[Rfam]
RNA sequence: CGCAUGCAUCAAGAGUCGGGAGUCCGUUUUCCGACGCCAACCUGCCUCCCCGGGCAAGGUGGAAGCCAUCAGGCGAUGCGGCCGAUAGUCGGCAACGAAACGGGACGGC
Dot-bracket structure: .....(((((....((((((((.....)))))))).((..((((((..[[[[))).))).))............))))).((((.....)))).......]]]].....
This 109-nucleotide RNA from Burkholderia glumae belongs to the Rfam family "SAM-I/IV (S-adenosyl methionine) riboswitch aptamer". The literature on the family includes a 2008 paper in RNA by Weinberg et al., "The aptamer core of SAM-IV riboswitches mimics the ligand-binding site of SAM-I riboswitches". Its family is annotated with regulation of gene expression and S-adenosylmethionine metabolic process in the Gene Ontology. A search with the family's covariance model found it, with a score of 54 bits.